[Rfam]
RNA sequence: CUGCGGUGAGGUAGUAAGUUGUGUUGUUGUGGGGUUUGGGAUUUUACAGCCCCUGUUUGGAGAUACAACGAUACAACAUACUGCCUUCCUCAG
Numbered sequence: 001c002u003g004c005g006g007u008g009a010g011g012u013a014g015u016a017a018g019u020u021g022u023g024u025u026g027u028u029g030u031g032g033g034g035u036u037u038g039g040g041a042u043u044u045u046a047c048a049g050c051c052c053c054u055g056u057u058u059g060g061a062g063a064u065a066c067a068a069c070g071a072u073a074c075a076a077c078a079u080a081c082u083g084c085c086u087u088c089c090u091c092a093g
Base pairs, nucleotide, nucleotide: 001093002092003091005089006088008087009086010085011084012083013082014081015080016079018077019076020075021074022073023072024071025070026069027068032052033051034050035049055064056063